RNA sequence: CUCUGGAAAGCAGUCCGGCCGGACCCACGGCCCGGGCUCACCGACGGGGCAAGCGCAUCCCGCAGCGGCGGGCGGCGCGGAAUCUCUCAGGUCCAAUACAGAG
Numbered sequence: 001c002u003c004u005g006g007a008a009a010g011c012a013g014u015c016c017g018g019c020c021g022g023a024c025c026c027a028c029g030g031c032c033c034g035g036g037c038u039c040a041c042c043g044a045c046g047g048g049g050c051a052a053g054c055g056c057a058u059c060c061c062g063c064a065g066c067g068g069c070g071g072g073c074g075g076c077g078c079g080g081a082a083u084c085u086c087u088c089a090g091g092u093c094c095a096a097u098a099c100a101g102a103g
Stems, first nucleotide, its partner, number of pairs: 001103005012038007040092003043088002047086003054079002
Rfam assigns this 103-nucleotide RNA from Arthrobacter sp. SW1 to the family "Glycine riboswitch aptamer".
This family represents the bacterial glycine riboswitch. Glycine riboswitches usually consist of two metabolite-binding aptamers domains with similar structures in tandem. The aptamers cooperatively bind glycine to regulate the expression of downstream genes. In Bacillus subtilis, this riboswitch is found upstream of the gcvT operon which controls glycine degradation.
A search with the family's covariance model found it, with a score of 33 bits.